[Rfam]
RNA sequence: CCACGUUGAGCCUUGGCACUGGGAGAAUUCACAGGAGUUCUGAAUAUACCCGUGAAUUUCCUGAUGCCUUAGCUUGAUGCGG
Numbered sequence: 001c002c003a004c005g006u007u008g009a010g011c012c013u014u015g016g017c018a019c020u021g022g023g024a025g026a027a028u029u030c031a032c033a034g035g036a037g038u039u040c041u042g043a044a045u046a047u048a049c050c051c052g053u054g055a056a057u058u059u060c061c062u063g064a065u066g067c068c069u070u071a072g073c074u075u076g077a078u079g080c081g082g
Base pairs, nucleotide, nucleotide: 004079005078006077007076008075009074010073015068016067017066018065020063021062022061023059025058026057029055030054031053032052034050
RNA: mir-263 microRNA precursor family
Organism: Spodoptera exigua